mir-2 microRNA precursor family: a 66-nucleotide sequence from Mytilus coruscus.
RNA sequence: CAAGACAUCAAAGUUGUUGUGAUGUGUUCCAAAUUAUCAUAUCACAGCCAGCUUUGAUGAGCUUGA
Numbered sequence: 001c002a003a004g005a006c007a008u009c010a011a012a013g014u015u016g017u018u019g020u021g022a023u024g025u026g027u028u029c030c031a032a033a034u035u036a037u038c039a040u041a042u043c044a045c046a047g048c049c050a051g052c053u054u055u056g057a058u059g060a061g062c063u064u065g066a
Stems, first nucleotide, its partner, number of pairs: 006059008014050001016048007025041003
It scores 63 bits against the family's covariance model.